[Rfam]
RNA: mir-124 microRNA precursor family
Organism: Caenorhabditis brenneri
RNA sequence: GCAUACACCUGAGUGACUUUAGUGGACAUCUGAAGUUUCCAACUAAGGCACGCGGUGAAUGCCA
Numbered sequence: 001g002c003a004u005a006c007a008c009c010u011g012a013g014u015g016a017c018u019u020u021a022g023u024g025g026a027c028a029u030c031u032g033a034a035g036u037u038u039c040c041a042a043c044u045a046a047g048g049c050a051c052g053c054g055g056u057g058a059a060u061g062c063c064a
Base pairs, nucleotide, nucleotide: 001062002061003060004059006057007056008055013053014052015051017048018047019046020045021044022043023042